[Rfam]
RNA sequence: UACACAUGUAGAGGUGCGAAUAUUAUAAGUAUUUUUCCAGAGUGGAUAACAAUGAAGGAAAUUGAAAGGAAUAUUUGCCGAAAUCAGUUAAGCGUCAUCUUAACUGGUUGGUAACGUCACCGAAAGGAACGUUACUGCCAUAGUCAUUUUUGAUUAACUAUGGAGCGCUACUCGUGGG
Numbered sequence: 001u002a003c004a005c006a007u008g009u010a011g012a013g014g015u016g017c018g019a020a021u022a023u024u025a026u027a028a029g030u031a032u033u034u035u036u037c038c039a040g041a042g043u044g045g046a047u048a049a050c051a052a053u054g055a056a057g058g059a060a061a062u063u064g065a066a067a068g069g070a071a072u073a074u075u076u077g078c079c080g081a082a083a084u085c086a087g088u089u090a091a092g093c094g095u096c097a098u099c100u101u102a103a104c105u106g107g108u109u110g111g112u113a114a115c116g117u118c119a120c121c122g123a124a125a126g127g128a129a130c131g132u133u134a135c136u137g138c139c140a141u142a143g144u145c146a147u148u149u150u151u152g153a154u155u156a157a158c159u160a161u162g163g164a165g166c167g168c169u170a171c172u173c174g175u176g177g178g
Stems, first nucleotide, its partner, number of pairs: 008171004016078009034061005082109011110136008120126001138163007
Lysine riboswitch aptamer: a 178-nucleotide sequence from [Mannheimia] succiniciproducens. The sequence is in the family's curated seed alignment.